[Rfam]
RNA sequence: GUAAUUACACAGGGGAGUUGGUAAUGGCCAGCUGAGAGUAAGAAAUCCAUUCUUAGACCCUUUAACCUGAUCUGGAUAAUGCCGGCGUAGGGAGUUAGAUGUAGAUAUUG
Numbered sequence: 001g002u003a004a005u006u007a008c009a010c011a012g013g014g015g016a017g018u019u020g021g022u023a024a025u026g027g028c029c030a031g032c033u034g035a036g037a038g039u040a041a042g043a044a045a046u047c048c049a050u051u052c053u054u055a056g057a058c059c060c061u062u063u064a065a066c067c068u069g070a071u072c073u074g075g076a077u078a079a080u081g082c083c084g085g086c087g088u089a090g091g092g093a094g095u096u097a098g099a100u101g102u103a104g105a106u107a108u109u110g
Stems, first nucleotide, its partner, number of pairs: 006098001009095002011061004017032005039055005066091004072085004
TPP riboswitch aptamer (THI element): a 110-nucleotide RNA from Clostridium sp. HMP27. Rfam links the family to the GO term thiamine pyrophosphate binding. The family's consensus secondary structure is taken from published work.